[Rfam]
RNA: c-di-GMP-I riboswitch aptamer
RNA sequence: GUUGAAUAAAGCCAAAGCUGUCGUGAGGCGGUGUCGGAAAACCACGGAUCUCUUUGAAGGAGAUAGCCGGGUCACCUAC
Dot-bracket structure: ...........((...((((((....))))))...))...(((.((((((((((...)))))))..)))))).......